[Rfam]
Rfam assigns this 76-nucleotide RNA sequence from Xanthomonas campestris to the family "Xanthomonas sRNA sX9". The family has 16 seed sequences and 309 matches in Rfam 15.1. On this family, see Schmidtke et al., Nucleic Acids Res 2011: "Genome-wide transcriptome analysis of the plant pathogen Xanthomonas identifies sRNAs with putative virulence functions". Taxonomically the source falls in Xanthomonas campestris pv. campestris (Bacteria, Lysobacteraceae, Xanthomonas, Xanthomonas campestris). Rfam classes the family as a small RNA.

RNA sequence: ACGUACCACUCAUACGCUGCGGUUCUGAGCGCGCAGCCCGCAUACACUGAAGACUGCUCGCCAAGUGUUGUCAGCC
Numbered sequence: 001a002c003g004u005a006c007c008a009c010u011c012a013u014a015c016g017c018u019g020c021g022g023u024u025c026u027g028a029g030c031g032c033g034c035a036g037c038c039c040g041c042a043u044a045c046a047c048u049g050a051a052g053a054c055u056g057c058u059c060g061c062c063a064a065g066u067g068u069u070g071u072c073a074g075c076c
Stems, first nucleotide, its partner, number of pairs: 002016004020036001022034002025031001047074004052069002